Shown here is a 130-nucleotide sequence from Phainopepla nitens, a member of the family "Small nucleolar RNA SNORA84". A reference for the family is Marker et al. (2002), "Experimental RNomics: identification of 140 candidates for small non-messenger RNAs in the plant Arabidopsis thaliana", Curr Biol. Rfam 15.1 lists 757 matches to the family in 629 species. Gene Ontology terms of the family: RNA processing and nucleolus. A search with the family's covariance model found it, with a score of 74 bits. Pairs were carried over by alignment from the consensus structure, which was predicted with WAR.
RNA sequence: GCCCCGUGGUUGCUGGACACUGCUGUGCCCGUGCAGUGCUGCAGCUGGAGUGGGCCCACAGUGACUCUGUGGCUGACGCAGGAGUCUGUGAUCCCUGAGCAGCCUCCAGAGCCCGCUCACAGGCACAGCC
Numbered sequence: 001g002c003c004c005c006g007u008g009g010u011u012g013c014u015g016g017a018c019a020c021u022g023c024u025g026u027g028c029c030c031g032u033g034c035a036g037u038g039c040u041g042c043a044g045c046u047g048g049a050g051u052g053g054g055c056c057c058a059c060a061g062u063g064a065c066u067c068u069g070u071g072g073c074u075g076a077c078g079c080a081g082g083a084g085u086c087u088g089u090g091a092u093c094c095c096u097g098a099g100c101a102g103c104c105u106c107c108a109g110a111g112c113c114c115g116c117u118c119a120c121a122g123g124c125a126c127a128g129c130c
Stems, first nucleotide, its partner, number of pairs: 001056001003054002007050001010047001012045004017040001019037005067122001069120004074115001078112002081107002084104001086102004